Rfam assigns this 78-nucleotide RNA from Nocardioides sp. Root1257 to the family "ZMP/ZTP riboswitch aptamer (pfl RNA motif)". The literature on the family includes a 2015 paper in Nat Struct Mol Biol by Jones and Ferre-D'Amare, "Recognition of the bacterial alarmone ZMP through long-distance association of two RNA subdomains". The match comes from Rfam's covariance-model search (50 bits). NCBI's taxonomy places the organism under Bacteria, Bacillati, Actinomycetes, Nocardioidaceae, Nocardioides.
RNA sequence: CUGACGCCACACGACUGGCGAAGGUGGGACCACCACCAGGGAGUGACGUCGGGAGCAUCGACCGCCUGGGUGCUCCUC
Numbered sequence: 001c002u003g004a005c006g007c008c009a010c011a012c013g014a015c016u017g018g019c020g021a022a023g024g025u026g027g028g029a030c031c032a033c034c035a036c037c038a039g040g041g042a043g044u045g046a047c048g049u050c051g052g053g054a055g056c057a058u059c060g061a062c063c064g065c066c067u068g069g070g071u072g073c074u075c076c077u078c
Base pairs, nucleotide, nucleotide: 003050004049005048006047008045011044012043015040016039017066018065019064020063024036025035026034027033055073056072057071058070059069
Dot-bracket structure: ..((((.(..((..(([[[[...((((.....))))..))..))).))))....(((((...]]]]..))))).....